RNA sequence: AGUAUGUUUUAUGAUGCACAACUUUUUUCCCCGUCAUAUCGACCAUGGUGACUAGUCAAUGAAACUAAGCCAGUUUUGUCUGAAAUCAUACU
Numbered sequence: 001a002g003u004a005u006g007u008u009u010u011a012u013g014a015u016g017c018a019c020a021a022c023u024u025u026u027u028u029c030c031c032c033g034u035c036a037u038a039u040c041g042a043c044c045a046u047g048g049u050g051a052c053u054a055g056u057c058a059a060u061g062a063a064a065c066u067a068a069g070c071c072a073g074u075u076u077u078g079u080c081u082g083a084a085a086u087c088a089u090a091c092u
Stems, first nucleotide, its partner, number of pairs: 001092006008085002

Rfam assigns this 92-nucleotide RNA sequence from Neogobius melanostomus to the family "Small nucleolar SNORD12/SNORD106".
It scores 65 bits against the family's covariance model.
The organism belongs to Neogobius, within Eukaryota.